[Rfam]
RNA: purD RNA motif
Organism: Sulfurovum lithotrophicum
RNA sequence: GUAGUCGGGCUGGUGUGUAGACAUUUUCGUUUGAGCGGGGUAACCCGCGAGAAUUUGCCUCCUAAAGGUCCGCUCUCUCCUGCACCGUUGGCUUUUUCGGGCCGACUUUGACAGAACGGCCACUCGGGU
Numbered sequence: 001g002u003a004g005u006c007g008g009g010c011u012g013g014u015g016u017g018u019a020g021a022c023a024u025u026u027u028c029g030u031u032u033g034a035g036c037g038g039g040g041u042a043a044c045c046c047g048c049g050a051g052a053a054u055u056u057g058c059c060u061c062c063u064a065a066a067g068g069u070c071c072g073c074u075c076u077c078u079c080c081u082g083c084a085c086c087g088u089u090g091g092c093u094u095u096u097u098c099g100g101g102c103c104g105a106c107u108u109u110g111a112c113a114g115a116a117c118g119g120c121c122a123c124u125c126g127g128g129u
Stems, first nucleotide, its partner, number of pairs: 003074002007071005019060002022057002026053003035048004088105007